[Rfam]
Nucleotides: 060
Base pairs, nucleotide, nucleotide: 006055007054008053009052010051015045018047019046021042022041023040024038025037026036027035
Number, partner (000 for none) and nucleotide at each position: 001000c002000g003000a004000a005000c006055g007054a008053g009052u010051a011000g012000a013000a014000g015045c016000g017000u018047u019046c020000a021042g022041c023040a024038c025037g026036c027035g028000c029000c030000c031000a032000g033000u034000g035027c036026g037025c038024g039000u040023u041022g042021c043000c044000c045015g046019g047018a048000a049000a050000u051010u052009g053008c054007u055006c056000a057000u058000g059000u060000c

Background: This 60-nucleotide RNA sequence from Delftia sp. Cs1-4 belongs to the Rfam family "Xanthine riboswitch aptamer (NMT1 RNA)". Pairs were carried over by alignment from the consensus structure, which is taken from published work. Taxonomically the source falls in Delftia (Bacteria, Pseudomonadota, Betaproteobacteria, Burkholderiales). Rfam links the family to the GO term purine nucleobase binding.